The family of this 154-nucleotide RNA sequence from Glycine max is "Small nucleolar RNA snoR145".
The literature on the family includes a 2009 paper in Nucleic Acids Res by Chen and Wu, "Mining small RNA sequencing data: a new approach to identify small nucleolar RNAs in Arabidopsis".
Pairs were carried over by alignment from the consensus structure, which was predicted with mfold.
By type it is an H/ACA-box small nucleolar RNA.
The sequence is in the family's curated seed alignment.

[Rfam]
RNA sequence: AUGCGAAGGUCCCAGCAGGGAGGCGAGUUACUCAUAUUGUUGAGGCCUCUCUAACAAUGAAAUUUAACACCCUUCGCAGAGUUAUUUGCCGAAUCGUAAGAUGCCCAAAUUUUUCUUUCAUUUUGGUGCAUCUAGAACCCUCGGCUAUAUUUUU
Numbered sequence: 001a002u003g004c005g006a007a008g009g010u011c012c013c014a015g016c017a018g019g020g021a022g023g024c025g026a027g028u029u030a031c032u033c034a035u036a037u038u039g040u041u042g043a044g045g046c047c048u049c050u051c052u053a054a055c056a057a058u059g060a061a062a063u064u065u066a067a068c069a070c071c072c073u074u075c076g077c078a079g080a081g082u083u084a085u086u087u088g089c090c091g092a093a094u095c096g097u098a099a100g101a102u103g104c105c106c107a108a109a110u111u112u113u114u115c116u117u118u119c120a121u122u123u124u125g126g127u128g129c130a131u132c133u134a135g136a137a138c139c140c141u142c143g144g145c146u147a148u149a150u151u152u153u154u
Stems, first nucleotide, its partner, number of pairs: 003077007011020003025051003031044004088145005100132002103129002105126005